[Rfam]
RNA sequence: AUUGAAUUCCCCGGUGAAUGGACUCCGGGAAGAUAGAACAAAAAUAAUUAAGUAAAAAUUAAGUUAAUAGUAGGAAUGAAUGAACAUCUUUAAAA
Numbered sequence: 001a002u003u004g005a006a007u008u009c010c011c012c013g014g015u016g017a018a019u020g021g022a023c024u025c026c027g028g029g030a031a032g033a034u035a036g037a038a039c040a041a042a043a044a045u046a047a048u049u050a051a052g053u054a055a056a057a058a059u060u061a062a063g064u065u066a067a068u069a070g071u072a073g074g075a076a077u078g079a080a081u082g083a084a085c086a087u088c089u090u091u092a093a094a095a
Stems, first nucleotide, its partner, number of pairs: 007031002010029005016023001078091003
Shown here is a 95-nucleotide RNA sequence from Asparagus officinalis, a member of the family "Plastid-rpl20 3UTR RNA". The base pairs follow the family's consensus structure, which was predicted with LocARNA. The match comes from Rfam's covariance-model search (58 bits).